[Rfam]
RNA sequence: UGAUCGACCUUUGAUAAACCUCAUAUAAAGUUGGGAAUAUGGCCCAAAAGUUUCUACCCAGUAACCGUAAAUUACUGGACUAUGAGGGGAAGUUAAGAGCGU
Numbered sequence: 001u002g003a004u005c006g007a008c009c010u011u012u013g014a015u016a017a018a019c020c021u022c023a024u025a026u027a028a029a030g031u032u033g034g035g036a037a038u039a040u041g042g043c044c045c046a047a048a049a050g051u052u053u054c055u056a057c058c059c060a061g062u063a064a065c066c067g068u069a070a071a072u073u074a075c076u077g078g079a080c081u082a083u084g085a086g087g088g089g090a091a092g093u094u095a096a097g098a099g100c101g102u
Stems, first nucleotide, its partner, number of pairs: 019087007031047005058078007
The family of this 102-nucleotide RNA from Pullulanibacillus pueri is "Purine riboswitch aptamer". Its family is annotated with purine nucleobase biosynthetic process in the Gene Ontology. It scores 86 bits against the family's covariance model. The organism belongs to Pullulanibacillus, within Bacteria.